[Rfam]
RNA sequence: UCAGUCGGCUGGACGGCCGCUCCCGCUCGGGCCGAAAGGCUUGCGGGAGAGGAAAGUCCGGGCUCCAUCGACAUACGGUGCCGGAUAACGUCCGGCGGGGGCGACCCCAGGGACAGUGCCACAGAGAACGAACCGCCGCGUCCACUUCUAUUCUCCGCUUGCCGGGGAGAGAACAGUGUGAGCGGUAAGGGUGAAAAGGUGCGGUAAGAGCGCACCGCGCCUCCGGCAACGGAGGCGGCAUGGUAAACCCCACCGGGAGCAAAACCGAAUAGGGACAGCAUAGCGAGGGGUUCGCCUUGGCGAUAACACCGCGGAGCCAUGUCGGGCUCGCUGUCCGGGUAGGUUGCUUGAGGCAACGUGCAAACGUUGUCCCAGAGGAAUGGCCGUCACGCACCGCGUGCGCAAGUGCGCGGUGCCCUACAGAACCCGGCUUACAGGCCGGCUGAUAUC
Numbered sequence: 001u002c003a004g005u006c007g008g009c010u011g012g013a014c015g016g017c018c019g020c021u022c023c024c025g026c027u028c029g030g031g032c033c034g035a036a037a038g039g040c041u042u043g044c045g046g047g048a049g050a051g052g053a054a055a056g057u058c059c060g061g062g063c064u065c066c067a068u069c070g071a072c073a074u075a076c077g078g079u080g081c082c083g084g085a086u087a088a089c090g091u092c093c094g095g096c097g098g099g100g101g102c103g104a105c106c107c108c109a110g111g112g113a114c115a116g117u118g119c120c121a122c123a124g125a126g127a128a129c130g131a132a133c134c135g136c137c138g139c140g141u142c143c144a145c146u147u148c149u150a151u152u153c154u155c156c157g158c159u160u161g162c163c164g165g166g167g168a169g170a171g172a173a174c175a176g177u178g179u180g181a182g183c184g185g186u187a188a189g190g191g192u193g194a195a196a197a198g199g200u201g202c203g204g205u206a207a208g209a210g211c212g213c214a215c216c217g218c219g220c221c222u223c224c225g226g227c228a229a230c231g232g233a234g235g236c237g238g239c240a241u242g243g244u245a246a247a248c249c250c251c252a253c254c255g256g257g258a259g260c261a262a263a264a265c266c267g268a269a270u271a272g273g274g275a276c277a278g279c280a281u282a283g284c285g286a287g288g289g290g291u292u293c294g295c296c297u298u299g300g301c302g303a304u305a306a307c308a309c310c311g312c313g314g315a316g317c318c319a320u321g322u323c324g325g326g327c328u329c330g331c332u333g334u335c336c337g338g339g340u341a342g343g344u345u346g347c348u349u350g351a352g353g354c355a356a357c358g359u360g361c362a363a364a365c366g367u368u369g370u371c372c373c374a375g376a377g378g379a380a381u382g383g384c385c386g387u388c389a390c391g392c393a394c395c396g397c398g399u400g401c402g403c404a405a406g407u408g409c410g411c412g413g414u415g416c417c418c419u420a421c422a423g424a425a426c427c428c429g430g431c432u433u434a435c436a437g438g439c440c441g442g443c444u445g446a447u448a449u450c
Stems, first nucleotide, its partner, number of pairs: 001446010011435001012388007020049007054433003058430005063259004076255005081095005096110001097108004111250002116248002118244003133190002135186005141180001143178004198216006217239001218237008263345004273336006314329005352371008